[Rfam]
RNA: ZMP/ZTP riboswitch aptamer (pfl RNA motif)
RNA sequence: CCGACGGGCCGUGACUGGCGCGUGGGGAUGGAGAACCAUCGGGGAGCGGUCCCGUCAUGAGGACGCAUGCCGAGCGCCUGGGCCUUCCGC
Numbered sequence: 001c002c003g004a005c006g007g008g009c010c011g012u013g014a015c016u017g018g019c020g021c022g023u024g025g026g027g028a029u030g031g032a033g034a035a036c037c038a039u040c041g042g043g044g045a046g047c048g049g050u051c052c053c054g055u056c057a058u059g060a061g062g063a064c065g066c067a068u069g070c071c072g073a074g075c076g077c078c079u080g081g082g083c084c085u086u087c088c089g090c
Stems, first nucleotide, its partner, number of pairs: 003056004007051006015043002017078005028039004067085001069083003